[Rfam]
RNA: MIR408 microRNA precursor family
RNA sequence: GAGGGAAGGAGGCAUUAAGGCAGGGAUAAGGCAGAGCAUGGGAUGGGGUCAUCAACGUGACGAAAUCCCAAGGAAGAAACUUUGGAAGGCGAGGAGAAGAUAGGGUGGAUUGUUGCUGUCCCUUCCCAUGCACUGCCUCUUCCCUGGCUCUCCCUUCACCUCUUCUU
Numbered sequence: 001g002a003g004g005g006a007a008g009g010a011g012g013c014a015u016u017a018a019g020g021c022a023g024g025g026a027u028a029a030g031g032c033a034g035a036g037c038a039u040g041g042g043a044u045g046g047g048g049u050c051a052u053c054a055a056c057g058u059g060a061c062g063a064a065a066u067c068c069c070a071a072g073g074a075a076g077a078a079a080c081u082u083u084g085g086a087a088g089g090c091g092a093g094g095a096g097a098a099g100a101u102a103g104g105g106u107g108g109a110u111u112g113u114u115g116c117u118g119u120c121c122c123u124u125c126c127c128a129u130g131c132a133c134u135g136c137c138u139c140u141u142c143c144c145u146g147g148c149u150c151u152c153c154c155u156u157c158a159c160c161u162c163u164u165c166u167u
Stems, first nucleotide, its partner, number of pairs: 018149002021146006029138006036131005042126001046122002